[Rfam]
RNA sequence: UUACUCUGGCUUCUCUUCAUCGUAUGAUUCUUUCGCCUUUUACUAAAGAAUUCCGUGGAGGGGAGCAUUUCAAUGAGUCUUAAACUAUUUUUCUUAACCUGACUUGUGUCAGGU
Numbered sequence: 001u002u003a004c005u006c007u008g009g010c011u012u013c014u015c016u017u018c019a020u021c022g023u024a025u026g027a028u029u030c031u032u033u034c035g036c037c038u039u040u041u042a043c044u045a046a047a048g049a050a051u052u053c054c055g056u057g058g059a060g061g062g063g064a065g066c067a068u069u070u071c072a073a074u075g076a077g078u079c080u081u082a083a084a085c086u087a088u089u090u091u092u093c094u095u096a097a098c099c100u101g102a103c104u105u106g107u108g109u110c111a112g113g114u
Stems, first nucleotide, its partner, number of pairs: 003078004009066011026052008096114001098113006
U5 spliceosomal RNA: a 114-nucleotide RNA from Ciona savignyi. The family's RNA type in Rfam is spliceosomal small nuclear RNA. NCBI's taxonomy places the organism under Eukaryota, Opisthokonta, Metazoa, Tunicata, Ciona. The literature on the family includes a 1997 paper in Nucleic Acids Res by Zwieb, "The uRNA database".